The family of this 60-nucleotide RNA sequence from Gloeothece citriformis is "Glutamine riboswitch aptamer (glnA leader)". The base pairs follow the family's consensus structure, which is taken from published work.
RNA sequence: AUCGUUCAUCCUUCUAGUUUUGGAGGACGGAAGUAGGGAAAAAUCCCGAAGGAACGCGCU
Numbered sequence: 001a002u003c004g005u006u007c008a009u010c011c012u013u014c015u016a017g018u019u020u021u022g023g024a025g026g027a028c029g030g031a032a033g034u035a036g037g038g039a040a041a042a043a044u045c046c047c048g049a050a051g052g053a054a055c056g057c058g059c060u
Base pairs, nucleotide, nucleotide: 003056004055005054006053007052009027010026011025012024013023030057036047037046038045

Taxonomically the source falls in Gloeothece citriformis (Bacteria, Chroococcales, Aphanothecaceae, Gloeothece).
For this family Rfam cites "Bacterial aptamers that selectively bind glutamine" (Ames and Breaker, RNA Biol, 2011).
A search with the family's covariance model found it, with a score of 62 bits.
Gene Ontology term of the family: glutamine binding.